[Rfam]
RNA sequence: GGCAACUGCCUCGAAAGGGGGGUGACUCAGUUGUACGAAAUUGUCUCAUUAAUCAUUGCCCCACUUUUUGUGGUUCUAGUAAUCGUGCUAGUUAAUCACUGGCUAGAUGAUUAGCAAUGAUUGAAACAGUUGCUUUUCUAGCUCCAACGCUGGAGUCGCAACAGUGAAAAG
Numbered sequence: 001g002g003c004a005a006c007u008g009c010c011u012c013g014a015a016a017g018g019g020g021g022g023u024g025a026c027u028c029a030g031u032u033g034u035a036c037g038a039a040a041u042u043g044u045c046u047c048a049u050u051a052a053u054c055a056u057u058g059c060c061c062c063a064c065u066u067u068u069u070g071u072g073g074u075u076c077u078a079g080u081a082a083u084c085g086u087g088c089u090a091g092u093u094a095a096u097c098a099c100u101g102g103c104u105a106g107a108u109g110a111u112u113a114g115c116a117a118u119g120a121u122u123g124a125a126a127c128a129g130u131u132g133c134u135u136u137u138c139u140a141g142c143u144c145c146a147a148c149g150c151u152g153g154a155g156u157c158g159c160a161a162c163a164g165u166g167a168a169a170a171g
Stems, first nucleotide, its partner, number of pairs: 001134008009021004022036003050123010061073004076091006092106003096102002148166005
The family of this 171-nucleotide RNA sequence from Tetragenococcus halophilus is "Enterococcus sRNA B11".
It is annotated as a small RNA.